[Rfam]
RNA sequence: AUCUGUGGUGACACAGACAUAUAGUGAAGCGCUCUAUAUGGCUUGGCAGAGCUUUAAAACUGUU
Numbered sequence: 001a002u003c004u005g006u007g008g009u010g011a012c013a014c015a016g017a018c019a020u021a022u023a024g025u026g027a028a029g030c031g032c033u034c035u036a037u038a039u040g041g042c043u044u045g046g047c048a049g050a051g052c053u054u055u056a057a058a059a060c061u062g063u064u
Stems, first nucleotide, its partner, number of pairs: 002017006018040007
A member of the RNA family "Bacilli-1 RNA" from Streptococcus phage Javan549, 64 nucleotides long. NCBI's taxonomy places the organism under Viruses, Duplodnaviria, Heunggongvirae, Uroviricota, Caudoviricetes. Pairs were carried over by alignment from the consensus structure, which is taken from published work. By type it is a small RNA.